[Rfam]
Nucleotides: 072
Base pairs, nucleotide, nucleotide: 001071002070003069004068005067006066007065010025011024012023027043028042029041030040031039048064049063050062051061052060
Number, partner (000 for none) and nucleotide at each position: 001071g002070g003069u004068c005067c006066c007065g008000u009000g010025g011024u012023c013000a014000a015000g016000a017000g018000g019000u020000u021000a022000a023012g024011a025010c026000a027043c028042c029041g030040c031039c032000c033000u034000u035000u036000c037000a038000c039031g040030g041029c042028g043027g044000u045000a046000a047000c048064a049063g050062g051061g052060g053000u054000u055000c056000a057000a058000u059000u060052c061051c062050c063049c064048u065007c066006g067005g068004g069003a070002u071001c072000a

Rfam assigns this 72-nucleotide RNA from Monoglobus pectinilyticus to the family "tRNA". By type it is a transfer RNA.